[Rfam]
Background: This 75-nucleotide RNA sequence from Crocodylus porosus belongs to the Rfam family "Mammalian CPEB3 ribozyme". The mammalian CPEB3 ribozyme is a self cleaving RNA located in the second intron of the CPEB3 gene which belongs to a family of genes regulating messenger RNA polyadenylation.

RNA sequence: UGAGGGUUGAGGGGCCAGAGUGGAAGCACUCAUGGCAUAGCCCUGUUAGAUUCCAACAAAUCUGUGAAUUCUGCU
Number, nucleotide and partner (000 for none) at each position: 001u000002g000003a000004g000005g000006g000007u000008u000009g000010a000011g000012g043013g042014g041015c040016c000017a000018g000019a075020g074021u073022g072023g071024a070025a069026g038027c000028a000029c000030u000031c000032a000033u000034g000035g000036c000037a000038u026039a000040g015041c014042c013043c012044u000045g000046u000047u064048a063049g062050a061051u060052u059053c000054c000055a000056a000057c000058a000059a052060a051061u050062c049063u048064g047065u000066g000067a000068a000069u025070u024071c023072u022073g021074c020075u019